A member of the RNA family "Nuclear RNase P" from Colletotrichum orchidophilum, 404 nucleotides long. For this family Rfam cites "Ribonuclease P: unity and diversity in a tRNA processing ribozyme" (Frank and Pace, Annu Rev Biochem, 1998). It scores 47 bits against the family's covariance model. NCBI's taxonomy places the organism under Eukaryota, Opisthokonta, saccharomyceta, Sordariomycetes, Colletotrichum.
RNA sequence: UCCUCUUCAACGCUGCGUUUCUAUGCUACAAACGGAGAGAUUCUCGCGCAAGCAAGAAUCUCUCAUUCUAUCAAACUGGCAUAUGAGAAAUUCGGAGUAACUUCUUCACACCACUCACCCAAUGUCGCCUGCCUAGUGCGGGAUGACGGGUCUGCCCGCGAGGGCCUGGCGUGAUCUCACGUCUGCAAUUGGCAUCAGAAAAGCAGGGCCCGGGCCGUCCUCUUGCAUACCCUGAAUCCCAUUGGGAAGAGGGGGAAGAUGAGGUCUGGACUCCGUGUUCCUUUGGGAGAGCCGUUGCGAAAAGAUUGUGCAGAGCACUUGAGUGCGAUACGCAGCGUCUGGGCCCUGGCCAGCUUCGGCUGGUCAGAGACUUGACAAUUCAAUUCCGAUCAUUCUGUUGAGGA
Numbered sequence: 001u002c003c004u005c006u007u008c009a010a011c012g013c014u015g016c017g018u019u020u021c022u023a024u025g026c027u028a029c030a031a032a033c034g035g036a037g038a039g040a041u042u043c044u045c046g047c048g049c050a051a052g053c054a055a056g057a058a059u060c061u062c063u064c065a066u067u068c069u070a071u072c073a074a075a076c077u078g079g080c081a082u083a084u085g086a087g088a089a090a091u092u093c094g095g096a097g098u099a100a101c102u103u104c105u106u107c108a109c110a111c112c113a114c115u116c117a118c119c120c121a122a123u124g125u126c127g128c129c130u131g132c133c134u135a136g137u138g139c140g141g142g143a144u145g146a147c148g149g150g151u152c153u154g155c156c157c158g159c160g161a162g163g164g165c166c167u168g169g170c171g172u173g174a175u176c177u178c179a180c181g182u183c184u185g186c187a188a189u190u191g192g193c194a195u196c197a198g199a200a201a202a203g204c205a206g207g208g209c210c211c212g213g214g215c216c217g218u219c220c221u222c223u224u225g226c227a228u229a230c231c232c233u234g235a236a237u238c239c240c241a242u243u244g245g246g247a248a249g250a251g252g253g254g255g256a257a258g259a260u261g262a263g264g265u266c267u268g269g270a271c272u273c274c275g276u277g278u279u280c281c282u283u284u285g286g287g288a289g290a291g292c293c294g295u296u297g298c299g300a301a302a303a304g305a306u307u308g309u310g311c312a313g314a315g316c317a318c319u320u321g322a323g324u325g326c327g328a329u330a331c332g333c334a335g336c337g338u339c340u341g342g343g344c345c346c347u348g349g350c351c352a353g354c355u356u357c358g359g360c361u362g363g364u365c366a367g368a369g370a371c372u373u374g375a376c377a378a379u380u381c382a383a384u385u386c387c388g389a390u391c392a393u394u395c396u397g398u399u400g401a402g403g404a
Stems, first nucleotide, its partner, number of pairs: 001404004008397002012336007022083004035064010093388005102301003154165004168183005185298004191293003205282003337376003341372002